Rfam assigns this 170-nucleotide sequence to the family "malK-I RNA". The family's RNA type in Rfam is cis-regulatory element. Pairs were carried over by alignment from the consensus structure, which is taken from published work. It is one of the family's seed sequences.

[Rfam]
RNA sequence: UUCCAAUCGAGCGUAUUACUCCACAAAAAUAAUACGUUGCGAGGAAAAAGGAGGAAAAAAAUACCGUGGCCUGCGGUGCGGCAGUGUGGAGACCUGUCGUAUAUGCGGAUGGAAUGAUCCGUGAAGUUACAGCAUGCGGAGGCACUGUAACUAAGGCAAGAAAGAUGGCA
Numbered sequence: 001u002u003c004c005a006a007u008c009g010a011g012c013g014u015a016u017u018a019c020u021c022c023a024c025a026a027a028a029a030u031a032a033u034a035c036g037u038u039g040c041g042a043g044g045a046a047a048a049a050g051g052a053g054g055a056a057a058a059a060a061a062u063a064c065c066g067u068g069g070c071c072u073g074c075g076g077u078g079c080g081g082c083a084g085u086g087u088g089g090a091g092a093c094c095u096g097u098c099g100u101a102u103a104u105g106c107g108g109a110u111g112g113a114a115u116g117a118u119c120c121g122u123g124a125a126g127u128u129a130c131a132g133c134a135u136g137c138g139g140a141g142g143c144a145c146u147g148u149a150a151c152u153a154a155g156g157c158a159a160g161a162a163a164g165a166u167g168g169c170a
Base pairs, nucleotide, nucleotide: 010038011037012036013035014034015033016032017031018030064076065075066074067073069157070156071155072154077101078100079099080098081097082096083095084094086093087092105122106121107120108119109118110117125152126151127150128149129148130147131146132145135144136143137142